[Rfam]
RNA sequence: CUUGAGCGACCCCAACCACAGCGGCUCGGCGCGGUCCUGGCCGUAGGUCGCCAGGAUCGCCUCCGCCUC
Numbered sequence: 001c002u003u004g005a006g007c008g009a010c011c012c013c014a015a016c017c018a019c020a021g022c023g024g025c026u027c028g029g030c031g032c033g034g035u036c037c038u039g040g041c042c043g044u045a046g047g048u049c050g051c052c053a054g055g056a057u058c059g060c061c062u063c064c065g066c067c068u069c
Base pairs, nucleotide, nucleotide: 014026016024017023027065028064029063032059033058037054038053039052041050043048
ASpks TB sRNA: a 69-nucleotide sequence from Saccharothrix variisporea. Taxonomically the source falls in Saccharothrix (Bacteria, Bacillati, Actinomycetota, Pseudonocardiales). Pairs were carried over by alignment from the consensus structure, which is taken from published work.